[Rfam]
RNA sequence: GGUGAUAAACGCGCGCGGAAUAAGCGGAUCGGACCCGGGGGCGGUACCCGGCGGCUCCACCAAGCUCCUCGUUGGGGACCAUGGGGCCGAAACAGGAUCGACGGACGUCUAAAGGCGUUAGCUUUUACUCGGCAGGAUGCCACCGUUAUCGGCUCAAAUCGCAUAGUUGCCAACGACAACCAUGCUCCGGUGGCGGUCGCCGCGUAA
Numbered sequence: 001g002g003u004g005a006u007a008a009a010c011g012c013g014c015g016c017g018g019a020a021u022a023a024g025c026g027g028a029u030c031g032g033a034c035c036c037g038g039g040g041g042c043g044g045u046a047c048c049c050g051g052c053g054g055c056u057c058c059a060c061c062a063a064g065c066u067c068c069u070c071g072u073u074g075g076g077g078a079c080c081a082u083g084g085g086g087c088c089g090a091a092a093c094a095g096g097a098u099c100g101a102c103g104g105a106c107g108u109c110u111a112a113a114g115g116c117g118u119u120a121g122c123u124u125u126u127a128c129u130c131g132g133c134a135g136g137a138u139g140c141c142a143c144c145g146u147u148a149u150c151g152g153c154u155c156a157a158a159u160c161g162c163a164u165a166g167u168u169g170c171c172a173a174c175g176a177c178a179a180c181c182a183u184g185c186u187c188c189g190g191u192g193g194c195g196g197u198c199g200c201c202g203c204g205u206a207a
Stems, first nucleotide, its partner, number of pairs: 001129005013118004025107002029104003035051005052089007130145003
Notes: The record is a 207-nucleotide sequence from Amaricoccus macauensis, which matches "permuted transfer-messenger RNA" in Rfam. The match comes from Rfam's covariance-model search (147 bits). Rfam classes the family as a non-coding RNA gene.